[Rfam]
RNA sequence: CUUCACCGAACCCAGCCACAGCGGCCGCUCCGCCGGACGGUCCUGCCCGUACGUCGCGAUGAGCGCCUGCGCCUC
Number, nucleotide and partner (000 for none) at each position: 001c000002u000003u000004c000005a000006c000007c000008g000009a000010a000011c000012c000013c000014a000015g025016c024017c023018a000019c000020a000021g000022c000023g017024g016025c015026c000027g000028c000029u000030c000031c071032g070033c069034c000035g000036g000037a000038c065039g064040g000041u000042c000043c000044u059045g000046c000047c056048c000049g054050u000051a000052c000053g000054u049055c000056g047057c000058g000059a044060u000061g000062a000063g000064c039065g038066c000067c000068u000069g033070c032071g031072c000073c000074u000075c000
The family of this 75-nucleotide RNA sequence from Streptomyces formicae is "ASpks TB sRNA". The family's RNA type in Rfam is antisense RNA. On this family, see Arnvig and Young, Mol Microbiol 2009: "Identification of small RNAs in Mycobacterium tuberculosis". The base pairs follow the family's consensus structure, which is taken from published work. It scores 83 bits against the family's covariance model.